[Rfam]
RNA sequence: CUAUCCAUCCACGGGAGUCCACGGCAGGUGUGGGCUGAGAGGGAAGACCGCGAACGCAGGUCCCGACCGUUAGAACCUGAUCCGGCUCAUACCGGCGAGAGGGAGAGUGCUUUUAUCGUGA
Numbered sequence: 001c002u003a004u005c006c007a008u009c010c011a012c013g014g015g016a017g018u019c020c021a022c023g024g025c026a027g028g029u030g031u032g033g034g035c036u037g038a039g040a041g042g043g044a045a046g047a048c049c050g051c052g053a054a055c056g057c058a059g060g061u062c063c064c065g066a067c068c069g070u071u072a073g074a075a076c077c078u079g080a081u082c083c084g085g086c087u088c089a090u091a092c093c094g095g096c097g098a099g100a101g102g103g104a105g106a107g108u109g110c111u112u113u114u115a116u117c118g119u120g121a
Stems, first nucleotide, its partner, number of pairs: 006109003010105001011070004017035007042063003076102003082095004